RNA: Bacterial large subunit ribosomal RNA, nucleotides 559 to 791
Organism: Stieleria bergensis
RNA sequence: GAGUUGUGGUAUGCGGCUUGGUUAAGCUCCUCCGGAGCGAAGCCCAAGGGAAACCGAGUCUGAAUAGGGCGAAAUUGUCGUAUGCUGCAGACGCGAAAGCUGUGUGAUCUACCCAUGGGCAGGUUGAAGCGCGGGUUAAACUGCGUGGAGGACCGAACCCACUUAGGUUGAAAACUGAGGGGAUGACCUGUGGGGAGGACUGAAAGUGUAAUCAAACCAGCAGAUAGCUCGUU
Dot-bracket structure: ....(((((((((((((..((((..(((.......)))..))))...((....))..((((.....))))......)))))))))))))..((.(...((((.((...((.(((((((((.((((...((((((......))))))....))))...(((.(((((........))))))))..).)))))))).)).((.......))......))))))......).))..